[Rfam]
RNA sequence: UUGAAACCGAUGAGCAAGAAGAGUAGGCAUAACAAAUCACUUUCAGAGAGUCGCUGGCUGGUGUGAAGCGACAGUGUUGUUAUUCCGAAUGGACUUGUGAGGGCGGAAAGAAAUCGCUAUGGCGAGAGUAAUGUCCGACGGGAACCCUGUCCGUUAUCAGUGGGGUGUGUAUGUUUGUACGCAAAAGGAGUGAUCUGUAUUUUUUGAAUACAGGUAAUUUGGGUGGUAUCGCAGAAGCUAUAAGCUUUUGUCCCUUGU
Numbered sequence: 001u002u003g004a005a006a007c008c009g010a011u012g013a014g015c016a017a018g019a020a021g022a023g024u025a026g027g028c029a030u031a032a033c034a035a036a037u038c039a040c041u042u043u044c045a046g047a048g049a050g051u052c053g054c055u056g057g058c059u060g061g062u063g064u065g066a067a068g069c070g071a072c073a074g075u076g077u078u079g080u081u082a083u084u085c086c087g088a089a090u091g092g093a094c095u096u097g098u099g100a101g102g103g104c105g106g107a108a109a110g111a112a113a114u115c116g117c118u119a120u121g122g123c124g125a126g127a128g129u130a131a132u133g134u135c136c137g138a139c140g141g142g143a144a145c146c147c148u149g150u151c152c153g154u155u156a157u158c159a160g161u162g163g164g165g166u167g168u169g170u171a172u173g174u175u176u177g178u179a180c181g182c183a184a185a186a187g188g189a190g191u192g193a194u195c196u197g198u199a200u201u202u203u204u205u206g207a208a209u210a211c212a213g214g215u216a217a218u219u220u221g222g223g224u225g226g227u228a229u230c231g232c233a234g235a236a237g238c239u240a241u242a243a244g245c246u247u248u249u250g251u252c253c254c255u256u257g258u
Stems, first nucleotide, its partner, number of pairs: 007102002015097004026086002029083003039075003050072006104137004109132001139153003193215009221254003231251008
Overview: Rfam assigns this 258-nucleotide RNA from Anaerotignum neopropionicum to the family "T-box leader". Gene Ontology term of the family: tRNA binding. Rfam classes the family as a cis-regulatory leader. The organism belongs to Anaerotignum, within Bacteria.